Group II catalytic intron D1-D4-7: a 149-nucleotide sequence from Citrobacter rodentium. NCBI's taxonomy places the organism under Bacteria, Pseudomonadota, Gammaproteobacteria, Enterobacteriaceae, Citrobacter rodentium. Rfam links the family to the GO term Group II intron splicing. Rfam's curators write: Group II introns are found in rRNA, tRNA and mRNA of organelles in fungi, plants and protists, and also in mRNA in bacteria.
RNA sequence: CCCGUUGUUCAGCCAACGGUAGCCUAAGGAUAGUGCGUCACUGGUAACGGUGAGGUGCGAAGCUUCCUGACAACGUACUCCCGCGCAAGCGGCGGCUGGUAUCCGCGAGGACGCCAUCUGGAUUGGUCUAACGACAUGACCAUGAGAGG
Numbered sequence: 001c002c003c004g005u006u007g008u009u010c011a012g013c014c015a016a017c018g019g020u021a022g023c024c025u026a027a028g029g030a031u032a033g034u035g036c037g038u039c040a041c042u043g044g045u046a047a048c049g050g051u052g053a054g055g056u057g058c059g060a061a062g063c064u065u066c067c068u069g070a071c072a073a074c075g076u077a078c079u080c081c082c083g084c085g086c087a088a089g090c091g092g093c094g095g096c097u098g099g100u101a102u103c104c105g106c107g108a109g110g111a112c113g114c115c116a117u118c119u120g121g122a123u124u125g126g127u128c129u130a131a132c133g134a135c136a137u138g139a140c141c142a143u144g145a146g147a148g149g
Stems, first nucleotide, its partner, number of pairs: 002019006027068004033058004038053006081092004093120003103110002124142005